[Rfam]
RNA: Nuclear RNase P
RNA sequence: GUGGGCGGAAGCUCAUUGUAGAGGUCACAUGCUGAGUGCUCGUCACUCCACCAAUCACCUCGGGGAAGGUCUGAGACAAGAGCCAAUCGUUGCUCUAGCAGGGCAUCACCUGAUUCGGGUGAGCGAGUGAACAGAAAUCAUGGUCCCGUGUGAGCGGUCGUAGCAGGAGAAGCCGGUCGGCGCAGAUUUGUCAGCGCCAUCCGGUGGAUGUGGCGCUCACUGGAUUGGAAUCGCUCGCGGCUGGCGGAUGAGUGCGAUGUAUGAGGUGGUGCACAGCUCCACAACCCAAUUCAGACUACUCUCCCCCCAC
Numbered sequence: 001g002u003g004g005g006c007g008g009a010a011g012c013u014c015a016u017u018g019u020a021g022a023g024g025u026c027a028c029a030u031g032c033u034g035a036g037u038g039c040u041c042g043u044c045a046c047u048c049c050a051c052c053a054a055u056c057a058c059c060u061c062g063g064g065g066a067a068g069g070u071c072u073g074a075g076a077c078a079a080g081a082g083c084c085a086a087u088c089g090u091u092g093c094u095c096u097a098g099c100a101g102g103g104c105a106u107c108a109c110c111u112g113a114u115u116c117g118g119g120u121g122a123g124c125g126a127g128u129g130a131a132c133a134g135a136a137a138u139c140a141u142g143g144u145c146c147c148g149u150g151u152g153a154g155c156g157g158u159c160g161u162a163g164c165a166g167g168a169g170a171a172g173c174c175g176g177u178c179g180g181c182g183c184a185g186a187u188u189u190g191u192c193a194g195c196g197c198c199a200u201c202c203g204g205u206g207g208a209u210g211u212g213g214c215g216c217u218c219a220c221u222g223g224a225u226u227g228g229a230a231u232c233g234c235u236c237g238c239g240g241c242u243g244g245c246g247g248a249u250g251a252g253u254g255c256g257a258u259g260u261a262u263g264a265g266g267u268g269g270u271g272c273a274c275a276g277c278u279c280c281a282c283a284a285c286c287c288a289a290u291u292c293a294g295a296c297u298a299c300u301c302u303c304c305c306c307c308c309a310c
Base pairs, nucleotide, nucleotide: 001310002309003308004307007304008303009302012265013264014263015262016261021061022060023059024058034048035047036046037045038044071294072293073292074291075290081242082241083240084239091105092104093103094102095101106122107121108120109119110118111117123238124237125236126235127234128233129232144224145223146222266282267281268280269279271277272276